[Rfam]
RNA sequence: GCUUCAAAGAUGAUUAAACUGUCUGUAGAUGAUGAAAGACACAAUGCAGGUGCAUUAACGGAGC
Number, nucleotide and partner (000 for none) at each position: 001g064002c063003u062004u061005c060006a000007a000008a000009g000010a000011u000012g000013a000014u000015u000016a000017a000018a000019c000020u000021g000022u000023c000024u000025g000026u000027a000028g000029a000030u000031g000032a000033u000034g000035a000036a000037a000038g000039a000040c000041a000042c000043a000044a000045u000046g000047c000048a000049g000050g000051u000052g000053c000054a000055u000056u000057a000058a000059c000060g005061g004062a003063g002064c001

Small nucleolar RNA SNORD109A: a 64-nucleotide RNA from Amazona guildingii. The family's consensus secondary structure was predicted with WAR. From the family's description: Humans have two copies of the SNORD109 gene, SNORD109A and SNORD109B. A reference for the family is Runte et al. (2001), "The IC-SNURF-SNRPN transcript serves as a host for multiple small nucleolar RNA species and as an antisense RNA for UBE3A", Hum Mol Genet. The match comes from Rfam's covariance-model search (38 bits). The family's RNA type in Rfam is C/D-box small nucleolar RNA. The family has 7 seed sequences and 412 matches in Rfam 15.1.